[Rfam]
RNA sequence: GUCGAGCUGGGUAGCGCCAGCUUGUGACCCAAGUGGGGACAUCAAGGUGGUUGAACACUAGCUCGAAUUUACCCGGUAGGUUCUAGUGUGCACGCUAUGUCGACUCGCCCGUUCCAAGUCUGGAGUUGAUUUGCACGAUCCGGGCGUAGGCUUGGGUGUGUGGUCACUGAAGUGGCGGGCACUGCGUCAGGCUGGAUUCACAGAGCAGCGAUCACCUCCCUCUCUCGAUAGUGGAAGGAUAACGAGUCGAUGUGCCCCGGUUCCAACUCAGCCUGGUGAGCCGAGUCAGUUGAACAACCACCUUU
Number, nucleotide and partner (000 for none) at each position: 001g040002u039003c038004g023005a022006g021007c020008u019009g018010g017011g000012u000013a000014g000015c000016g000017c010018c009019a008020g007021c006022u005023u004024g000025u000026g000027a000028c037029c036030c035031a000032a000033g000034u000035g030036g029037g028038g003039a002040c001041a000042u000043c000044a304045a303046g302047g301048u300049g299050g298051u297052u296053g295054a000055a000056c292057a291058c289059u288060a000061g000062c285063u284064c283065g282066a000067a000068u000069u279070u278071a277072c276073c275074c000075g273076g272077u271078a000079g264080g263081u000082u000083c260084u259085a000086g257087u000088g256089u000090g255091c254092a253093c000094g000095c000096u000097a000098u000099g000100u250101c249102g248103a247104c246105u245106c244107g243108c000109c238110c237111g000112u236113u235114c234115c233116a232117a000118g229119u228120c227121u000122g225123g224124a223125g222126u000127u166128g165129a164130u163131u162132u000133g000134c160135a159136c158137g157138a000139u156140c155141c154142g153143g152144g151145c150146g000147u000148a000149g000150g145151c144152u143153u142154g141155g140156g139157u137158g136159u135160g134161u000162g131163g130164u129165c128166a127167c172168u000169g000170a000171a000172g167173u000174g219175g218176c000177g216178g215179g000180c000181a000182c000183u000184g000185c210186g209187u208188c000189a000190g000191g000192c203193u202194g201195g000196a000197u000198u000199c000200a000201c194202a193203g192204a000205g000206c000207a000208g187209c186210g185211a000212u000213c000214a000215c178216c177217u000218c175219c174220c000221u000222c125223u124224c123225u122226c000227g120228a119229u118230a000231g000232u116233g115234g114235a113236a112237g110238g109239a000240u000241a000242a000243c107244g106245a105246g104247u103248c102249g101250a100251u000252g000253u092254g091255c090256c088257c086258c000259g084260g083261u000262u000263c080264c079265a000266a000267c000268u000269c000270a000271g077272c076273c075274u000275g073276g072277u071278g070279a069280g000281c000282c065283g064284a063285g062286u000287c000288a059289g058290u000291u057292g056293a000294a000295c053296a052297a051298c050299c049300a048301c047302c046303u045304u044305u000